Plastid-psbM 3UTR RNA: a 79-nucleotide RNA sequence. Rfam describes the family as follows. Plastid psbM is a non-coding RNA (ncRNA) recognised in plastids. It was found in the three prime untranslated region (3UTR) of psbM gene, its 3UTR location suggests a role in transcript maturation. It is annotated as a cis-regulatory element.
Nucleotides: 079
Base pairs, nucleotide, nucleotide: 006051007050008049009048010047011046012045013044014043015042016041017040018039019038020037022035023034
Number, partner (000 for none) and nucleotide at each position: 001000g002000a003000u004000c005000c006051g007050a008049u009048a010047g011046u012045a013044u014043g015042g016041u017040a018039g019038a020037a021000a022035g023034a024000a025000a026000u027000a028000u029000a030000u031000g032000a033000a034023u035022c036000c037020u038019u039018c040017u041016a042015c043014c044013a045012u046011a047010c048009u049008a050007u051006c052000u053000a054000u055000u056000a057000u058000u059000g060000u061000u062000a063000u064000u065000g066000a067000a068000g069000u070000g071000u072000a073000u074000a075000a076000a077000a078000c079000u